The record is a 165-nucleotide sequence from Rhodamnia argentea, which matches "U12 minor spliceosomal RNA" in Rfam. The source organism's lineage runs through Eukaryota, Embryophyta, eudicotyledons, rosids and Rhodamnia. By type it is a spliceosomal small nuclear RNA. Its Rfam clan is "U2 clan". The pairing is the family consensus, mapped onto this sequence.

RNA sequence: GCGCCUUAAACUAAUGAGUAAGGAAAACAAAGCGAACGGUGGGAGCCGGUCGCAGCGCCUUAUGUGGAACUAGGGUUUCCUGGCGCAAGAAUUUAUGGAGGGGCCAUAGGCUGGCCGAGCGGAGACGCUGCUUACUUUUGCAGAACUCGCUCGCGCGGGCCUCCC
Numbered sequence: 001g002c003g004c005c006u007u008a009a010a011c012u013a014a015u016g017a018g019u020a021a022g023g024a025a026a027a028c029a030a031a032g033c034g035a036a037c038g039g040u041g042g043g044a045g046c047c048g049g050u051c052g053c054a055g056c057g058c059c060u061u062a063u064g065u066g067g068a069a070c071u072a073g074g075g076u077u078u079c080c081u082g083g084c085g086c087a088a089g090a091a092u093u094u095a096u097g098g099a100g101g102g103g104c105c106a107u108a109g110g111c112u113g114g115c116c117g118a119g120c121g122g123a124g125a126c127g128c129u130g131c132u133u134a135c136u137u138u139u140g141c142a143g144a145a146c147u148c149g150c151u152c153g154c155g156c157g158g159g160c161c162u163c164c165c
Base pairs, nucleotide, nucleotide: 004023005022006021007020008019032053033052034051035050037048038047039046055086056085057084058083059082102165103164108162109161110160111159112158114156116153117152119150120149121148122147128143129142130141131140